[Rfam]
RNA sequence: AAAGCAGGCUGCAAUUACAGUGCUUCAUUCUGUGGGAGCACUGCCAUGUCCCUGCUGAGAGCAACUCUGUUACUUAGAAUUUGGUUUCUCCUCUGUACUAGGGGAAUCACUCUUCUCUUAACAGGGAACA
Dot-bracket structure: ..((((((.........(((((((((........))))))))).......))))))........((((((((.........(((((((((..........))))))))).........))))))))....

The family of this 130-nucleotide RNA sequence from Phrynocephalus forsythii is "Small nucleolar RNA SNORA69". Gene Ontology terms of the family: nucleolus and RNA processing. Rfam's curators write: U69 is a member of the H/ACA class of small nucleolar RNAs (snoRNAs) which act as guides in the the modification of uridines to pseudouridines. The family's RNA type in Rfam is H/ACA-box small nucleolar RNA. The family's consensus secondary structure was predicted with PFOLD. The source organism's lineage runs through Eukaryota, Deuterostomia, Dipnotetrapodomorpha, Lepidosauria and Phrynocephalus.